[Rfam]
RNA: c-di-AMP riboswitch aptamer (ydaO/yuaA leader)
RNA sequence: CUUGAAAACAAGCCGAAUCUCCACAUGGAGUACGGGGGAUCUUAUUAUAGGGGUGAAUCUUUUUUAUAAAGUAGGGGACCUCAACCCGAACCCGUCAACUAACCUCGGAGGCAAAAGAGGAGGAAAAA
Numbered sequence: 001c002u003u004g005a006a007a008a009c010a011a012g013c014c015g016a017a018u019c020u021c022c023a024c025a026u027g028g029a030g031u032a033c034g035g036g037g038g039a040u041c042u043u044a045u046u047a048u049a050g051g052g053g054u055g056a057a058u059c060u061u062u063u064u065u066a067u068a069a070a071g072u073a074g075g076g077g078a079c080c081u082c083a084a085c086c087c088g089a090a091c092c093c094g095u096c097a098a099c100u101a102a103c104c105u106c107g108g109a110g111g112c113a114a115a116a117g118a119g120g121a122g123g124a125a126a127a128a
Stems, first nucleotide, its partner, number of pairs: 012112003019030002033107005042050002051093003059071004074087003